The family of this 183-nucleotide sequence from Lactobacillus acetotolerans is "Enterococcus sRNA B11". NCBI's taxonomy places the organism under Bacteria, Bacillota, Bacilli, Lactobacillales, Lactobacillus. The literature on the family includes a 2011 paper in PLoS One by Shioya et al., "Genome-wide identification of small RNAs in the opportunistic pathogen Enterococcus faecalis V583". Rfam classes the family as a small RNA.
RNA sequence: GGCAACUUGUCCCCAAAGGGGGUGUGUUACAUUGCGUGAUUUAUUCUCAUUGAUCGUUGCACCUAUCAUUGUAGGUAUAGCUACUAAGCUAUUUUCUCGGUGGUUGGACGAGAACGACAAAGACAACGAUCGCUAGCAGGUUGCCUUUCAACUCACACACUGGCCGUCGCAUCCAGUGAAAAA
Number, nucleotide and partner (000 for none) at each position: 001g145002g144003c143004a142005a141006c140007u139008u138009g000010u021011c020012c019013c018014c000015a000016a000017a000018g013019g012020g011021g010022g037023u036024g035025u034026g000027u000028u000029a000030c000031a000032u000033u000034g025035c024036g023037u022038g000039a000040u000041u000042u000043a000044u000045u000046c000047u000048c000049a000050u000051u132052g131053a130054u129055c128056g127057u126058u125059g124060c000061a000062c075063c074064u073065a072066u071067c000068a000069u000070u000071g066072u065073a064074g063075g062076u000077a092078u091079a090080g089081c088082u087083a000084c000085u000086a000087a082088g081089c080090u079091a078092u077093u000094u000095u119096c000097u000098c000099g000100g000101u000102g000103g000104u000105u000106g000107g000108a000109c000110g000111a000112g000113a000114a000115c000116g000117a000118c000119a095120a000121a000122g000123a000124c059125a058126a057127c056128g055129a054130u053131c052132g051133c000134u000135a000136g000137c000138a008139g007140g006141u005142u004143g003144c002145c001146u000147u000148u000149c000150a000151a000152c000153u000154c000155a000156c000157a000158c178159a177160c176161u175162g174163g000164c000165c000166g000167u000168c000169g000170c000171a000172u000173c000174c162175a161176g160177u159178g158179a000180a000181a000182a000183a000